[Rfam]
The record is a 179-nucleotide sequence from Humibacillus sp. DSM 29435, which matches "c-di-AMP riboswitch aptamer (ydaO/yuaA leader)" in Rfam. The source organism's lineage runs through Bacteria, Actinomycetota, Actinomycetes, Micrococcales and Humibacillus.

RNA sequence: AUCCGAGGUUCGUUGCAAUCCCACACGGCAGGAGCGGGGGAACCACUUCUUCGGGCGUCGCGAGACGUCCUCGGGGUGAAGCCCUUCGAAGGGGCCCACACGGGCCCUGACGGGGGCCGGGCACGUACCUCUAGCCCGAACCCGACAGCUCACUUCGUAGGCGUCGAGAGGUAGAACGU
Numbered sequence: 001a002u003c004c005g006a007g008g009u010u011c012g013u014u015g016c017a018a019u020c021c022c023a024c025a026c027g028g029c030a031g032g033a034g035c036g037g038g039g040g041a042a043c044c045a046c047u048u049c050u051u052c053g054g055g056c057g058u059c060g061c062g063a064g065a066c067g068u069c070c071u072c073g074g075g076g077u078g079a080a081g082c083c084c085u086u087c088g089a090a091g092g093g094g095c096c097c098a099c100a101c102g103g104g105c106c107c108u109g110a111c112g113g114g115g116g117c118c119g120g121g122c123a124c125g126u127a128c129c130u131c132u133a134g135c136c137c138g139a140a141c142c143c144g145a146c147a148g149c150u151c152a153c154u155u156c157g158u159a160g161g162c163g164u165c166g167a168g169a170g171g172u173a174g175a176a177c178g179u
Base pairs, nucleotide, nucleotide: 002033003032004031034158035157036156037155038154039153044073074143075142076141082116083115084114085113119137120136121135122134